The record is a 170-nucleotide RNA from Photobacterium ganghwense, which matches "Lysine riboswitch aptamer" in Rfam.
The organism belongs to Photobacterium, within Bacteria.
About the family: Riboswitches are metabolite binding domains within certain messenger RNAs that serve as precision sensors for their corresponding targets.
Rfam 15.1 lists 3,224 matches to the family in 1,923 species.

RNA sequence: UAAAUCAGUAGAGGCGCGCUGCCUAUCAGUAACCGAGCAGAGGGUGAUACCGAUGAAGCCGGGGAAAGGAGUCAGCGCCGAAGUGACUGAGUCAUCAAACUCAGCCGCUGGGGCUGCGUCGAACAGGCGCAGCACUGCCAUAGUUUUUCCUAUGGAGCGCUACCUAAGGG
Numbered sequence: 001u002a003a004a005u006c007a008g009u010a011g012a013g014g015c016g017c018g019c020u021g022c023c024u025a026u027c028a029g030u031a032a033c034c035g036a037g038c039a040g041a042g043g044g045u046g047a048u049a050c051c052g053a054u055g056a057a058g059c060c061g062g063g064g065a066a067a068g069g070a071g072u073c074a075g076c077g078c079c080g081a082a083g084u085g086a087c088u089g090a091g092u093c094a095u096c097a098a099a100c101u102c103a104g105c106c107g108c109u110g111g112g113g114c115u116g117c118g119u120c121g122a123a124c125a126g127g128c129g130c131a132g133c134a135c136u137g138c139c140a141u142a143g144u145u146u147u148u149c150c151u152a153u154g155g156a157g158c159g160c161u162a163c164c165u166a167a168g169g170g
Stems, first nucleotide, its partner, number of pairs: 008163004016078006023071002033062003037059002082109004087104006110136002113133008138155006